The record is a 112-nucleotide RNA sequence from Caproicibacter fermentans, which matches "TPP riboswitch aptamer (THI element)" in Rfam.
RNA sequence: AAAAUAGAAAAGGGGUGCUGGGUAUUUCCCGGCUGAGAGCAGGCGGAUUGAUGCCUGAAACCCAUAACCUGAUCUGGAUAAUGCCAGCGUAGGAAAACGAAAGUUACGCUCC
Numbered sequence: 001a002a003a004a005u006a007g008a009a010a011a012g013g014g015g016u017g018c019u020g021g022g023u024a025u026u027u028c029c030c031g032g033c034u035g036a037g038a039g040c041a042g043g044c045g046g047a048u049u050g051a052u053g054c055c056u057g058a059a060a061c062c063c064a065u066a067a068c069c070u071g072a073u074c075u076g077g078a079u080a081a082u083g084c085c086a087g088c089g090u091a092g093g094a095a096a097a098c099g100a101a102a103g104u105u106a107c108g109c110u111c112c
Base pairs, nucleotide, nucleotide: 012063013062014061016058017033018032019031020030021029040057041056042055043054044053068093069092070091071090074087075086076085077084

Rfam links the family to the GO term thiamine pyrophosphate binding.